RNA sequence: GAAGUGAGCUAGACGGUCGCGCCUGUGUGGUAUAUCGCUCAUGCAGGUGAGGAAAGUCCGGGCUCCAUAGGGCAGGAUGCCGGUUAACAACCGGGCGGAGUGAUCUGACGGAAAGCGCCGCAGAAAAGAAGACUCCCACUGGCGGGCAACCGUUAAGGGAAAAGCUGAAACGGUGGUGUAAGAGACCACCAGCGUUGUGGUAACACAGCGGCUUGGCAAGCCCCAUCCGGAGCAAGCGCAAAUAGGAGUGCUAUGGAUUGGCCCAAUCCGCACUCGGGUAGCGUGCGAAGAGACCCCUGGUAACAGGUGCCCAAGAUAAAUGAUCGUCCACGACAGAACCCGGCUUAUCGGCUCACUUCGCUU
Number, nucleotide and partner (000 for none) at each position: 001g359002a358003a357004g356005u355006g354007a353008g352009c351010u350011a348012g328013a327014c326015g325016g324017u323018c322019g000020c049021g048022c047023c046024u045025g044026u043027g042028u041029g040030g039031u000032a000033u000034a000035u000036c000037g000038c000039u030040c029041a028042u027043g026044c025045a024046g023047g022048u021049g020050a000051g000052g000053a000054a346055a345056g344057u000058c343059c342060g341061g340062g339063c232064u231065c230066c229067a000068u000069a000070g264071g263072g262073c261074a000075g228076g227077a226078u225079g224080c094081c093082g092083g091084u090085u000086a000087a000088c000089a000090a084091c083092c082093g081094g080095g109096c107097g106098g105099a104100g000101u000102g000103a000104u099105c098106u097107g096108a000109c095110g223111g222112a000113a000114a000115g221116c220117g217118c216119c215120g000121c000122a000123g000124a000125a000126a000127a000128g000129a000130a000131g000132a000133c164134u163135c000136c159137c158138a000139c000140u155141g154142g153143c152144g151145g150146g000147c000148a000149a000150c145151c144152g143153u142154u141155a140156a000157g000158g137159g136160a000161a000162a000163a134164g133165c000166u000167g000168a000169a000170a000171c000172g190173g189174u188175g187176g186177u185178g000179u000180a000181a000182g000183a000184g000185a177186c176187c175188a174189c173190c172191a000192g212193c210194g209195u208196u207197g206198u205199g204200g000201u000202a000203a000204c199205a198206c197207a196208g195209c194210g193211g000212c192213u000214u000215g119216g118217c117218a000219a000220g116221c115222c111223c110224c079225a078226u077227c076228c075229g066230g065231a064232g063233c000234a000235a000236g284237c283238g282239c281240a000241a000242a000243u000244a000245g000246g275247a274248g273249u272250g271251c270252u000253a000254u000255g269256g268257a267258u266259u265260g000261g073262c072263c071264c070265a259266a258267u257268c256269c255270g251271c250272a249273c248274u247275c246276g000277g000278g000279u000280a000281g239282c238283g237284u236285g000286c000287g000288a000289a000290g000291a000292g311293a000294c309295c000296c307297c306298u305299g304300g000301u000302a000303a000304c299305a298306g297307g296308u000309g294310c000311c292312c000313a000314a000315g000316a000317u000318a000319a000320a000321u000322g018323a017324u016325c015326g014327u013328c012329c000330a000331c000332g000333a000334c000335a000336g000337a000338a000339c062340c061341c060342g059343g058344c056345u055346u054347a000348u011349c000350g010351g009352c008353u007354c006355a005356c004357u003358u002359c001360g000361c000362u000363u000

The record is a 363-nucleotide sequence from Collinsella sp. zg1085, which matches "Bacterial RNase P class A" in Rfam. It is annotated as a ribozyme. It scores 303 bits against the family's covariance model.